[Rfam]
RNA sequence: GUAUGGCUGAAUACUGUGUUCUUUUUAUCAGCAUACGCAGGCAGACACCAUAAAAAAGCAGUCUUCCCUUUGAAAGGGCUAUGAUGGUAUGCCAAGUUUUUUCACAACAUAUCAUUUUUAAAAGUGGAUACAAAC
Numbered sequence: 001g002u003a004u005g006g007c008u009g010a011a012u013a014c015u016g017u018g019u020u021c022u023u024u025u026u027a028u029c030a031g032c033a034u035a036c037g038c039a040g041g042c043a044g045a046c047a048c049c050a051u052a053a054a055a056a057a058g059c060a061g062u063c064u065u066c067c068c069u070u071u072g073a074a075a076g077g078g079c080u081a082u083g084a085u086g087g088u089a090u091g092c093c094a095a096g097u098u099u100u101u102u103c104a105c106a107a108c109a110u111a112u113c114a115u116u117u118u119u120a121a122a123a124g125u126g127g128a129u130a131c132a133a134a135c
Base pairs, nucleotide, nucleotide: 002052003051004050005049006048014040015039016038017037018036019035064128065127066126067124069122070121071120072119073118083116084115085114086113087112088111089110090109091108
Dot-bracket structure: .(((((.......((((((...............)))))).......)))))...........((((.(((((.........(((((((((................))))))))).))))).).))).......
The record is a 135-nucleotide RNA sequence from Hipposideros armiger, which matches "Small nucleolar RNA SNORA15" in Rfam. Rfam 15.1 lists 974 matches to the family in 624 species. It is annotated as an H/ACA-box small nucleolar RNA. Taxonomically the source falls in Hipposideros (Eukaryota, Deuterostomia, Chordata, Laurasiatheria). Its family is annotated with RNA processing and nucleolus in the Gene Ontology. The family's consensus secondary structure was predicted with RNAfold. Rfam describes the family as follows. ACA15 is a member of the H/ACA class of snoRNA that guide the sites of modification of uridines to pseudouridines.